[Rfam]
RNA sequence: AGCUUCAGUGAACAUUCAACGCUGUCGGUGAGUUUGAGAACUAGAAAAAACCAUCGACCGUUGACUGUACCUU
Numbered sequence: 001a002g003c004u005u006c007a008g009u010g011a012a013c014a015u016u017c018a019a020c021g022c023u024g025u026c027g028g029u030g031a032g033u034u035u036g037a038g039a040a041c042u043a044g045a046a047a048a049a050a051c052c053a054u055c056g057a058c059c060g061u062u063g064a065c066u067g068u069a070c071c072u073u
Stems, first nucleotide, its partner, number of pairs: 007073001013067002016064006024058007032051004
RNA: mir-181 microRNA precursor family
Organism: Taeniopygia guttata